Shown here is a 79-nucleotide sequence from Mesocricetus auratus, a member of the family "Small nucleolar RNA SNORD115". Rfam 15.1 lists 3,387 matches to the family in 131 species. On this family, see Cavaille et al., Proc Natl Acad Sci U S A 2000: "Identification of brain-specific and imprinted small nucleolar RNA genes exhibiting an unusual genomic organization". The match comes from Rfam's covariance-model search (53 bits). The base pairs follow the family's consensus structure, which was predicted with PFOLD. Lineage of the source: Eukaryota > Euarchontoglires > Cricetidae > Cricetinae > Mesocricetus.
[Rfam]
RNA sequence: AGGUCUAUGAUGACAAACCUACCUCAUGAAGAGAGGUGAUGACAUAAAAAUCUUGCUCAGGUUAUGGCUGCUGAGGCCC
Numbered sequence: 001a002g003g004u005c006u007a008u009g010a011u012g013a014c015a016a017a018c019c020u021a022c023c024u025c026a027u028g029a030a031g032a033g034a035g036g037u038g039a040u041g042a043c044a045u046a047a048a049a050a051u052c053u054u055g056c057u058c059a060g061g062u063u064a065u066g067g068c069u070g071c072u073g074a075g076g077c078c079c
Stems, first nucleotide, its partner, number of pairs: 002078003005073001008070002